[Rfam]
This 78-nucleotide RNA from Rhynchophorus ferrugineus belongs to the Rfam family "mir-67 microRNA precursor family".
NCBI's taxonomy places the organism under Eukaryota, Metazoa, Neoptera, Curculionoidea, Rhynchophorus.
The family's consensus secondary structure was predicted with RNAalifold.
A reference for the family is Cao et al. (2008), "Identification of conserved microRNAs in Bombyx mori (silkworm) and regulation of fibroin L chain production by microRNAs in heterologous system", Insect Biochem Mol Biol.
RNA sequence: UUGGCGGUUCACUCACUCAACCUGGGUGUGAUGUGUUUUUUGAUCCAUCACAACCUCCUUGAGUGAGCGACUGAUGAG
Numbered sequence: 001u002u003g004g005c006g007g008u009u010c011a012c013u014c015a016c017u018c019a020a021c022c023u024g025g026g027u028g029u030g031a032u033g034u035g036u037u038u039u040u041u042g043a044u045c046c047a048u049c050a051c052a053a054c055c056u057c058c059u060u061g062a063g064u065g066a067g068c069g070a071c072u073g074a075u076g077a078g
Stems, first nucleotide, its partner, number of pairs: 008070002012067009024055002027052007